[Rfam]
RNA sequence: UGAUAAAUGAAUACUGUGCCGCAGACAGUAGGUGUCCCACAGGGACAUAACGUAUAACAACCUACCGAGGUCUUUAACAUAAGGACGGAAGUGUGUCGUUUUGCCUGCGGAGAUGUGCAAGACGAUUUUUUUAUGCAUUA
Numbered sequence: 001u002g003a004u005a006a007a008u009g010a011a012u013a014c015u016g017u018g019c020c021g022c023a024g025a026c027a028g029u030a031g032g033u034g035u036c037c038c039a040c041a042g043g044g045a046c047a048u049a050a051c052g053u054a055u056a057a058c059a060a061c062c063u064a065c066c067g068a069g070g071u072c073u074u075u076a077a078c079a080u081a082a083g084g085a086c087g088g089a090a091g092u093g094u095g096u097c098g099u100u101u102u103g104c105c106u107g108c109g110g111a112g113a114u115g116u117g118c119a120a121g122a123c124g125a126u127u128u129u130u131u132u133a134u135g136c137a138u139u140a
Stems, first nucleotide, its partner, number of pairs: 028065006034046003096125009
A member of the RNA family "Ribosomal protein L10 leader" from Cellulosilyticum lentocellum, 140 nucleotides long. Pairs were carried over by alignment from the consensus structure, which was predicted with CMfinder. On this family, see Iben and Draper, Biochemistry 2008: "Specific interactions of the L10(L12)4 ribosomal protein complex with mRNA, rRNA, and L11". A search with the family's covariance model found it, with a score of 64 bits.